[Rfam]
RNA sequence: AAAUGUGAUCUUUAGUAUUUCUCCAGUAGGUUUUCCUGAAGGAGGAAAGCCUCC
Dot-bracket structure: ............................(((((((((.....)))))))))...
RNA: U7 small nuclear RNA
Organism: Oncorhynchus tshawytscha